[Rfam]
RNA sequence: ACCUGCAUUCGAAAGGGAUCGCGGCCUGCCGGUGGCCGCGGUCACCGAUAGUGCAGGGAGAGGAGCGCGAGAGCCUUCCCGUGUCCGGGGGGGCGUCCCCUCCCUCCCUGACCCUGGUGCUGUCGGACA
Numbered sequence: 001a002c003c004u005g006c007a008u009u010c011g012a013a014a015g016g017g018a019u020c021g022c023g024g025c026c027u028g029c030c031g032g033u034g035g036c037c038g039c040g041g042u043c044a045c046c047g048a049u050a051g052u053g054c055a056g057g058g059a060g061a062g063g064a065g066c067g068c069g070a071g072a073g074c075c076u077u078c079c080c081g082u083g084u085c086c087g088g089g090g091g092g093g094c095g096u097c098c099c100c101u102c103c104c105u106c107c108c109u110g111a112c113c114c115u116g117g118u119g120c121u122g123u124c125g126g127a128c129a
Stems, first nucleotide, its partner, number of pairs: 002057008015045001017043005023037004066126001068125003072121003083112003087108001088106005
Shown here is a 129-nucleotide sequence from Pterocles gutturalis, a member of the family "Small nucleolar RNA SNORA71". On this family, see Ganot et al., Genes Dev 1997: "The family of box ACA small nucleolar RNAs is defined by an evolutionarily conserved secondary structure and ubiquitous sequence elements essential for RNA accumulation". Rfam describes the family as follows. The members of this family belong to the H/ACA class of snoRNAs which bind a number of proteins (including dyskerin, Gar1p and Nop10p) to form snoRNP complexes. The source organism's lineage runs through Eukaryota, Craniata, Theropoda, Neoaves and Pterocles. It is annotated as an H/ACA-box small nucleolar RNA.